[Rfam]
RNA: Bacterial large subunit ribosomal RNA, nucleotides 2012 to 2598
RNA sequence: CCCGCGGCUAGACGGAAAGACCCCGUGAACCUUUACUACAGCUUUGCACUGAACUUUGAGCCUACUUGUGUAGGAUAGCUGGGAGGCUUUGAAACUUAGACGCUAGUUUGAGUGGAGCCAAUCUUGAAAUACCAGCCUGGUAUGUUUGAGGUUCUAACCUAGACCCCUUAUCGGGGUUGGGGACAGUGUAUGGUGGGUAGUUUGACUGGGGCGGUCUCCUCCCAAAGAGUAACGGAGGAGUACGAAGGUGCGCUCAGCAUGGUCGGAAAUCAUGCAUUGAGUAUAAUGGCAAAAGCGCGCUUGACUGCGAGACUGACACGUCGAGCAGGUACGAAAGUAGGUCAUAGUGAUCCGGUGGUUCUGUAUGGAAGGGCCAUCGCUCAACGGAUAAAAGGUACUCCGGGGAUAACAGGCUGAUACCGCCCAAGAGUUCACAUCGACGGCGGUGUUUGGCACCUCGAUGUCGGCUCAUCACAUCCUGGGGCUGAAGCCGGUCCCAAGGGUAUGGCUGUUCGCCAUUUAAAGUGGUACGCGAGCUGGGUUUAGAACGUCGUGAGACAGUUCGGUCCCUAUCUGCCGUGGGCGUU
Numbered sequence: 001c002c003c004g005c006g007g008c009u010a011g012a013c014g015g016a017a018a019g020a021c022c023c024c025g026u027g028a029a030c031c032u033u034u035a036c037u038a039c040a041g042c043u044u045u046g047c048a049c050u051g052a053a054c055u056u057u058g059a060g061c062c063u064a065c066u067u068g069u070g071u072a073g074g075a076u077a078g079c080u081g082g083g084a085g086g087c088u089u090u091g092a093a094a095c096u097u098a099g100a101c102g103c104u105a106g107u108u109u110g111a112g113u114g115g116a117g118c119c120a121a122u123c124u125u126g127a128a129a130u131a132c133c134a135g136c137c138u139g140g141u142a143u144g145u146u147u148g149a150g151g152u153u154c155u156a157a158c159c160u161a162g163a164c165c166c167c168u169u170a171u172c173g174g175g176g177u178u179g180g181g182g183a184c185a186g187u188g189u190a191u192g193g194u195g196g197g198u199a200g201u202u203u204g205a206c207u208g209g210g211g212c213g214g215u216c217u218c219c220u221c222c223c224a225a226a227g228a229g230u231a232a233c234g235g236a237g238g239a240g241u242a243c244g245a246a247g248g249u250g251c252g253c254u255c256a257g258c259a260u261g262g263u264c265g266g267a268a269a270u271c272a273u274g275c276a277u278u279g280a281g282u283a284u285a286a287u288g289g290c291a292a293a294a295g296c297g298c299g300c301u302u303g304a305c306u307g308c309g310a311g312a313c314u315g316a317c318a319c320g321u322c323g324a325g326c327a328g329g330u331a332c333g334a335a336a337g338u339a340g341g342u343c344a345u346a347g348u349g350a351u352c353c354g355g356u357g358g359u360u361c362u363g364u365a366u367g368g369a370a371g372g373g374c375c376a377u378c379g380c381u382c383a384a385c386g387g388a389u390a391a392a393a394g395g396u397a398c399u400c401c402g403g404g405g406a407u408a409a410c411a412g413g414c415u416g417a418u419a420c421c422g423c424c425c426a427a428g429a430g431u432u433c434a435c436a437u438c439g440a441c442g443g444c445g446g447u448g449u450u451u452g453g454c455a456c457c458u459c460g461a462u463g464u465c466g467g468c469u470c471a472u473c474a475c476a477u478c479c480u481g482g483g484g485c486u487g488a489a490g491c492c493g494g495u496c497c498c499a500a501g502g503g504u505a506u507g508g509c510u511g512u513u514c515g516c517c518a519u520u521u522a523a524a525g526u527g528g529u530a531c532g533c534g535a536g537c538u539g540g541g542u543u544u545a546g547a548a549c550g551u552c553g554u555g556a557g558a559c560a561g562u563u564c565g566g567u568c569c570c571u572a573u574c575u576g577c578c579g580u581g582g583g584c585g586u587u
Stems, first nucleotide, its partner, number of pairs: 001583008010575003014570002022404004027400002029396005035201004042193002045190004051154011063142004068137001078136005085119003094113008158181003162178006204216004217239006240385001242342002248300006254280002257275006281290002305328004311322003330339003353379007361372002413454003417451001418448007428438002465540001466538004470532001471529005478503002481498006505519005546564004550559003